[Rfam]
RNA: Group I catalytic intron
RNA sequence: GGUCAAUGUUCAAAUUCUGGACCUUUAUAUUAGUAACAAUAUAAUUUGCAUUAAGCUAUAUGCUGGAACAUCCUUAGAGCCUUAAGUACCAUUUAUUAAGAGUAAAGGUAAAAAUCUUAAUGGAUUGGACAAUCAGCAGGAAACCCAUUUGGAGCUUGGUGGGGAUCCUCAGAGACUACAUGCUUAACAUCCUUUAUGGGAAAGGAUGAUGAUAUAGUCCAGUUUUAUUUUGAAAUAAAU
Numbered sequence: 001g002g003u004c005a006a007u008g009u010u011c012a013a014a015u016u017c018u019g020g021a022c023c024u025u026u027a028u029a030u031u032a033g034u035a036a037c038a039a040u041a042u043a044a045u046u047u048g049c050a051u052u053a054a055g056c057u058a059u060a061u062g063c064u065g066g067a068a069c070a071u072c073c074u075u076a077g078a079g080c081c082u083u084a085a086g087u088a089c090c091a092u093u094u095a096u097u098a099a100g101a102g103u104a105a106a107g108g109u110a111a112a113a114a115u116c117u118u119a120a121u122g123g124a125u126u127g128g129a130c131a132a133u134c135a136g137c138a139g140g141a142a143a144c145c146c147a148u149u150u151g152g153a154g155c156u157u158g159g160u161g162g163g164g165a166u167c168c169u170c171a172g173a174g175a176c177u178a179c180a181u182g183c184u185u186a187a188c189a190u191c192c193u194u195u196a197u198g199g200g201a202a203a204g205g206a207u208g209a210u211g212a213u214a215u216a217g218u219c220c221a222g223u224u225u226u227a228u229u230u231u232g233a234a235a236u237a238a239a240u
Stems, first nucleotide, its partner, number of pairs: 005025002008022005029040003051187004056182001061138006071129003139168002144163006172220001174219005190206006225238005